Bacterial RNase P class A: a 456-nucleotide RNA from Corynebacterium kroppenstedtii.
Ribonuclease P (RNase P) is a ubiquitous endoribonuclease, found in archaea, bacteria and eukarya as well as chloroplasts and mitochondria.
The base pairs follow the family's consensus structure, which is taken from published work.
Gene Ontology terms of the family: tRNA processing, ribonuclease P activity and dimeric ribonuclease P complex.
Rfam classes the family as a ribozyme.
Rfam's curators put it in the seed alignment.
The source organism's lineage runs through Bacteria, Bacillati, Actinomycetota, Corynebacteriaceae and Corynebacterium kroppenstedtii.
[Rfam]
RNA sequence: UGAGCCGGCCGGGUAAUCGCGGGGGCGGAAUCGACAGCACAGCGAGUCUCUGCUUGCAGAGACGGUGCCUGAUGCUGCGCAGACCGUCGUCGAGGAAAGUCCGGACUCCACAGAGCACGGAUGUUGCUAACAGCAACCCAGGGCGACCUGAGGGCACGUGCAACAGAAAGUAGACCGCCUGCAGACGCAAUAUCUGCAGGUAAGGGUGAAAGGGUGCGGUAAGAGCGCACCAGCACUGCAGGUGACUGUGGUGGCUAGGUAAACCCUUCCGGGAGCAAGGCAUGAUGGCGCACCAGUAUGGUGCGCCGGCGCGGGCGUUUGAGGGCUGCUCGUCCAAGUCCGCGGGUAAGCCGCGUGAGGCUGCCAGCGAUGGCAGCCCAAGAUAGAUGAUUACCUCCCAUGCCAGGGGAGACCCCGCAUGGCAGACAAAAUCCGGCUUAUAGGCCGGCUCAUUCG
Dot-bracket structure: ((((((((((((((((((.(((.(((((.......................................................))))).)))....[[[.[[[[[((((...[[[[.((((.(((((.....)))))(((((....)))).)((...((((.............(((((((((((.......)))))))))..)).......((((((.......)))))).(((((((((....)))))))).)...))..)))).))))))))...(((......(((.((.............................((((.]]]]))))..)).)))......)))......((((((((....))))))))..........)))))))....................................]]]]]]]].).))))))))))....
Numbered sequence: 001u002g003a004g005c006c007g008g009c010c011g012g013g014u015a016a017u018c019g020c021g022g023g024g025g026c027g028g029a030a031u032c033g034a035c036a037g038c039a040c041a042g043c044g045a046g047u048c049u050c051u052g053c054u055u056g057c058a059g060a061g062a063c064g065g066u067g068c069c070u071g072a073u074g075c076u077g078c079g080c081a082g083a084c085c086g087u088c089g090u091c092g093a094g095g096a097a098a099g100u101c102c103g104g105a106c107u108c109c110a111c112a113g114a115g116c117a118c119g120g121a122u123g124u125u126g127c128u129a130a131c132a133g134c135a136a137c138c139c140a141g142g143g144c145g146a147c148c149u150g151a152g153g154g155c156a157c158g159u160g161c162a163a164c165a166g167a168a169a170g171u172a173g174a175c176c177g178c179c180u181g182c183a184g185a186c187g188c189a190a191u192a193u194c195u196g197c198a199g200g201u202a203a204g205g206g207u208g209a210a211a212g213g214g215u216g217c218g219g220u221a222a223g224a225g226c227g228c229a230c231c232a233g234c235a236c237u238g239c240a241g242g243u244g245a246c247u248g249u250g251g252u253g254g255c256u257a258g259g260u261a262a263a264c265c266c267u268u269c270c271g272g273g274a275g276c277a278a279g280g281c282a283u284g285a286u287g288g289c290g291c292a293c294c295a296g297u298a299u300g301g302u303g304c305g306c307c308g309g310c311g312c313g314g315g316c317g318u319u320u321g322a323g324g325g326c327u328g329c330u331c332g333u334c335c336a337a338g339u340c341c342g343c344g345g346g347u348a349a350g351c352c353g354c355g356u357g358a359g360g361c362u363g364c365c366a367g368c369g370a371u372g373g374c375a376g377c378c379c380a381a382g383a384u385a386g387a388u389g390a391u392u393a394c395c396u397c398c399c400a401u402g403c404c405a406g407g408g409g410a411g412a413c414c415c416c417g418c419a420u421g422g423c424a425g426a427c428a429a430a431a432u433c434c435g436g437c438u439u440a441u442a443g444g445c446c447g448g449c450u451c452a453u454u455c456g
Stems, first nucleotide, its partner, number of pairs: 001452010011441001012395007020092003024088005097439003101436005106275004113331004118271004123137005138152001139150004153266002158264002160260002175205002177201009213231006233255001234253008279352003288343003292339002323335004359378008